RNA sequence: GGGCAGGAUAUGUGAAGUGCUAGCACCGGCGCUGCCGAUACUAGCACUUCACUUCCUCUUAUACGCGCUACGCACUCAACGAGGAUCCUGCUCUGCGAGGCC
Dot-bracket structure: (((((((((..((((((.(((...(.(((.....))).)...))).))))))..((((......(.((...)).).....))))))))))))).........
Numbered sequence: 001g002g003g004c005a006g007g008a009u010a011u012g013u014g015a016a017g018u019g020c021u022a023g024c025a026c027c028g029g030c031g032c033u034g035c036c037g038a039u040a041c042u043a044g045c046a047c048u049u050c051a052c053u054u055c056c057u058c059u060u061a062u063a064c065g066c067g068c069u070a071c072g073c074a075c076u077c078a079a080c081g082a083g084g085a086u087c088c089u090g091c092u093c094u095g096c097g098a099g100g101c102c
Stems, first nucleotide, its partner, number of pairs: 001093009012052006019045003025039001027037003055084004065075001067073002